[Rfam]
RNA sequence: GCCGAGCCAGUUGACGUGGGCUUGUAACCCAAGUGGGGGCUAUGAAGUGGUGGGACGUUGUUCCAAUCCAGAUGGCUGGAUUCGGAAUGGCUAUCUUCUGGCUCGCCCAUUCCAAGCAGGGAGUUGAACCAAGAGACUCGAUCGAAAGCUGGAGUUUCUUGGGUCCUAGAGUGGAGAGUACCGCGUGAGGCUGGCUUCACAGAGCAGCGACCAUCUCCCGCUUCCGGCAGUGGAAGGAUAACGAGUCGGUGUCACUCGGUUCCACAUAGCCACAUGGACUGUUCUAAUUGGACCACCACUUUU
Numbered sequence: 001g002c003c004g005a006g007c008c009a010g011u012u013g014a015c016g017u018g019g020g021c022u023u024g025u026a027a028c029c030c031a032a033g034u035g036g037g038g039g040c041u042a043u044g045a046a047g048u049g050g051u052g053g054g055a056c057g058u059u060g061u062u063c064c065a066a067u068c069c070a071g072a073u074g075g076c077u078g079g080a081u082u083c084g085g086a087a088u089g090g091c092u093a094u095c096u097u098c099u100g101g102c103u104c105g106c107c108c109a110u111u112c113c114a115a116g117c118a119g120g121g122a123g124u125u126g127a128a129c130c131a132a133g134a135g136a137c138u139c140g141a142u143c144g145a146a147a148g149c150u151g152g153a154g155u156u157u158c159u160u161g162g163g164u165c166c167u168a169g170a171g172u173g174g175a176g177a178g179u180a181c182c183g184c185g186u187g188a189g190g191c192u193g194g195c196u197u198c199a200c201a202g203a204g205c206a207g208c209g210a211c212c213a214u215c216u217c218c219c220g221c222u223u224c225c226g227g228c229a230g231u232g233g234a235a236g237g238a239u240a241a242c243g244a245g246u247c248g249g250u251g252u253c254a255c256u257c258g259g260u261u262c263c264a265c266a267u268a269g270c271c272a273c274a275u276g277g278a279c280u281g282u283u284c285u286a287a288u289u290g291g292a293c294c295a296c297c298a299c300u301u302u303u
Stems, first nucleotide, its partner, number of pairs: 001040003004023005010017002028037003044302010056290002058287003063281001068277003073272005078263003082259004088254003092251002098249008107237002110235005116228002119225006126165002129162011141150001143148001166171001173218005184209003191202003
This 303-nucleotide RNA from Manihot esculenta belongs to the Rfam family "Plant signal recognition particle RNA". It is annotated as a non-coding RNA gene. The base pairs follow the family's consensus structure, which is taken from published work. Taxonomically the source falls in Manihot (Eukaryota, Embryophyta, Spermatophyta, Malpighiales).